[Rfam]
Nucleotides: 113
Stems, first nucleotide, its partner, number of pairs: 006085005015033001018032005034064003039060003042056003047108001087097003
Number, partner (000 for none) and nucleotide at each position: 001000c002000a003000c004000u005000u006085g007084c008083a009082u010081u011000c012000c013000g014000a015033g016000a017000a018032a019031g020030a021029g022028c023000a024000u025000c026000c027000c028022g029021c030020u031019c032018u033015c034064a035063c036062c037000a038000a039060c040059c041058u042056g043055c044054c045000a046000g047108c048000a049000a050000c051000u052000c053000g054044g055043g056042c057000a058041a059040g060039g061000u062036g063035g064034u065000c066000u067000c068000c069000c070000u071000c072000a073000g074000a075000u076000g077000a078000g079000g080000g081010g082009a083008u084007g085006c086000g087097g088096c089095c090000g091000a092000g093000a094000g095089g096088g097087c098000a099000a100000c101000u102000a103000u104000g105000c106000g107000a108047g109000u110000u111000u112000c113000g